rpfG RNA: an 86-nucleotide RNA from Xanthomonas citri. The source organism's lineage runs through Bacteria, Lysobacterales, Xanthomonas, Xanthomonas citri and Xanthomonas citri pv. citri. Rfam classes the family as a small RNA. The base pairs follow the family's consensus structure, which is taken from published work.
[Rfam]
RNA sequence: GGCACAGAUACUGCAUAUGCUAGGGCGGUUCCUCCGGACGGCGUAUCGUCGGAGGUAGCCGGCGCGGGGGCCGGUGUCAUCGCUUU
Numbered sequence: 001g002g003c004a005c006a007g008a009u010a011c012u013g014c015a016u017a018u019g020c021u022a023g024g025g026c027g028g029u030u031c032c033u034c035c036g037g038a039c040g041g042c043g044u045a046u047c048g049u050c051g052g053a054g055g056u057a058g059c060c061g062g063c064g065c066g067g068g069g070g071c072c073g074g075u076g077u078c079a080u081c082g083c084u085u086u
Base pairs, nucleotide, nucleotide: 031055032054033053034052035051036050038049039048040047041046058075059074060073061072062071063070